[Rfam]
Small nucleolar RNA SNORA17: a 128-nucleotide sequence from Formicarius rufipectus. The family is grouped with related families in Rfam's "SNORA17 clan". From the family's description: snoRNA ACA 17 belongs to the H/ACA family of snoRNAs and is predicted to guide pseudouridylation of the 28S rRNA at positions U4659 and U4598. It shares the same host gene together with ACA43. NB This family has a high threshold value to exclude a large number of closely related sequences that do not appear to have conserved H and ACA boxes, and may be pseudogenes. NCBI's taxonomy places the organism under Eukaryota, Deuterostomia, Gnathostomata, Theropoda, Formicarius.
RNA sequence: ACUGCCCCAGCUUGUGUUGCAGGCGUGGCUGCAGUGCCACGUUUGUGUCAUUCGGUGGCAGAGAGGAUAAGGUGAGGUCUUCCCCUGGUGCUCUGACCCACGUGGGUUCCCAGGAUUGCUCAACAACC
Number, nucleotide and partner (000 for none) at each position: 001a000002c061003u060004g059005c058006c057007c055008c054009a000010g052011c000012u000013u000014g048015u047016g000017u000018u000019g046020c045021a044022g043023g000024c041025g040026u039027g038028g037029c036030u000031g000032c000033a000034g000035u000036g029037c028038c027039a026040c025041g024042u000043u022044u021045g020046u019047g015048u014049c000050a000051u000052u010053c000054g008055g007056u000057g006058g005059c004060a003061g002062a000063g000064a000065g000066g000067a000068u000069a000070a000071g124072g000073u122074g121075a120076g119077g000078u000079c000080u000081u115082c114083c113084c000085c000086u000087g109088g108089u106090g000091c104092u000093c102094u000095g000096a000097c000098c000099c000100a000101c000102g093103u000104g091105g000106g089107u000108u088109c087110c000111c000112a000113g083114g082115a081116u000117u000118g000119c076120u075121c074122a073123a000124c071125a000126a000127c000128c000